[Rfam]
RNA: TPP riboswitch aptamer (THI element)
Organism: Macrococcoides bohemicum
Nucleotides: 096
Stems, first nucleotide, its partner, number of pairs: 006084005011048004016042001017026003033041003052077004058071004
Number, partner (000 for none) and nucleotide at each position: 001000a002000u003000a004000u005000a006084c007083u008082a009081c010080u011048a012047g013046g014045g015000g016042u017026g018025c019024c020000u021000u022000u023000u024019g025018g026017c027000u028000g029000a030000g031000a032000u033041g034040a035039c036000u037000u038000u039035g040034u041033c042016a043000a044000a045014c046013c047012c048011u049000u050000u051000a052077c053076c054075u055074g056000a057000u058071c059070u060069a061068g062000a063000u064000a065000a066000u067000g068061c069060u070059a071058g072000c073000g074055u075054a076053g077052g078000a079000a080010a081009g082008u083007a084006g085000u086000u087000a088000a089000a090000u091000u092000c093000c094000u095000u096000u